About this RNA: Shown here is a 137-nucleotide RNA from Fulvimarina manganoxydans, a member of the family "Alphaproteobacterial sRNA ar9". The base pairs follow the family's consensus structure. It is annotated as a small RNA.

RNA sequence: GCAAGAAAAACUGGUCGCAGCGGUCUAGUCUUGGGAGGACGUGAUUUCAGGCGCGGUUUCGCCGCAGCCCCGUUAAAACGGUAAAGAAAUCCAGACACGCAAUUUCUGAUGCAAGGCUUCUGGCCUUGCAUUUUUUU
Numbered sequence: 001g002c003a004a005g006a007a008a009a010a011c012u013g014g015u016c017g018c019a020g021c022g023g024u025c026u027a028g029u030c031u032u033g034g035g036a037g038g039a040c041g042u043g044a045u046u047u048c049a050g051g052c053g054c055g056g057u058u059u060c061g062c063c064g065c066a067g068c069c070c071c072g073u074u075a076a077a078a079c080g081g082u083a084a085a086g087a088a089a090u091c092c093a094g095a096c097a098c099g100c101a102a103u104u105u106c107u108g109a110u111g112c113a114a115g116g117c118u119u120c121u122g123g124c125c126u127u128g129c130a131u132u133u134u135u136u137u
Base pairs, nucleotide, nucleotide: 001015002014004012020100021099022098028040029039030038031037043091044090045089046088047087050069051068052067053065054064055063070081071080072079110130111129112128113127114126115125116124117123